[Rfam]
RNA sequence: UAGUAGUGUGACAUGCCCGUUCGGGUUGAACUCUGAUGUGUGUAUUUAAUUAUUAUUAAUUACUUUUGGGUAACGGGGUGUUACAAUUGG
Numbered sequence: 001u002a003g004u005a006g007u008g009u010g011a012c013a014u015g016c017c018c019g020u021u022c023g024g025g026u027u028g029a030a031c032u033c034u035g036a037u038g039u040g041u042g043u044a045u046u047u048a049a050u051u052a053u054u055a056u057u058a059a060u061u062a063c064u065u066u067u068g069g070g071u072a073a074c075g076g077g078g079u080g081u082u083a084c085a086a087u088u089g090g
Base pairs, nucleotide, nucleotide: 005087007085008084009083010082011081012080013079014078016077017076018075019074020073021072
Background:
MIR2617 microRNA precursor family: a 90-nucleotide RNA from Medicago truncatula. Rfam 15.1 lists 1,174 matches to the family in 2 species. The base pairs follow the family's consensus structure, which was predicted with RNAalifold. The source organism's lineage runs through Eukaryota, Streptophytina, Tracheophyta, eudicotyledons and Medicago. The match comes from Rfam's covariance-model search (62 bits).